[Rfam]
RNA: mir-584 microRNA precursor family
RNA sequence: UAGGGUAACCAACUGUCCCAGUUUGCCUGGGGCUCUUGCAGUUCUGGAAUUGGAAGCCCCUGGCAAACAGAGCUGGCUGGUCACCCUGGACCACU
Numbered sequence: 001u002a003g004g005g006u007a008a009c010c011a012a013c014u015g016u017c018c019c020a021g022u023u024u025g026c027c028u029g030g031g032g033c034u035c036u037u038g039c040a041g042u043u044c045u046g047g048a049a050u051u052g053g054a055a056g057c058c059c060c061u062g063g064c065a066a067a068c069a070g071a072g073c074u075g076g077c078u079g080g081u082c083a084c085c086c087u088g089g090a091c092c093a094c095u
Stems, first nucleotide, its partner, number of pairs: 001088006008081004013076003019070001021068007029060006036053001038051001042049001